Record summary:
Guanidine-II riboswitch aptamer (mini-ykkC): a 50-nucleotide RNA from Allorhizobium borbori. Taxonomically the source falls in Allorhizobium (Bacteria, Pseudomonadati, Hyphomicrobiales, Rhizobiaceae).
RNA sequence: CGGCCGGGACGACCCGGCCAAACGGGCCCGACACCACCGGGACGACCCGA
Numbered sequence: 001c002g003g004c005c006g007g008g009a010c011g012a013c014c015c016g017g018c019c020a021a022a023c024g025g026g027c028c029c030g031a032c033a034c035c036a037c038c039g040g041g042a043c044g045a046c047c048c049g050a
Stems, first nucleotide, its partner, number of pairs: 002019007038049004
It scores 34 bits against the family's covariance model.
The base pairs follow the family's consensus structure, which is taken from published work.